[Rfam]
RNA sequence: UGAGCGGGUCGUGACUGGCGUACAGAUGGUCCACCAUCGGGGAACGACACCUCUUCACGGAUGGCCGCUCGCCUGGGUCAUAAUC
Numbered sequence: 001u002g003a004g005c006g007g008g009u010c011g012u013g014a015c016u017g018g019c020g021u022a023c024a025g026a027u028g029g030u031c032c033a034c035c036a037u038c039g040g041g042g043a044a045c046g047a048c049a050c051c052u053c054u055u056c057a058c059g060g061a062u063g064g065c066c067g068c069u070c071g072c073c074u075g076g077g078u079c080a081u082a083a084u085c
Stems, first nucleotide, its partner, number of pairs: 003054002006051002008048005015041002017073004026037004062080005
Dot-bracket structure: ..((.(((((((..(([[[[.....((((....))))..))..))))).)).)).......(((((...]]]]..))))).....
RNA: ZMP/ZTP riboswitch aptamer (pfl RNA motif)
Organism: Leucobacter luti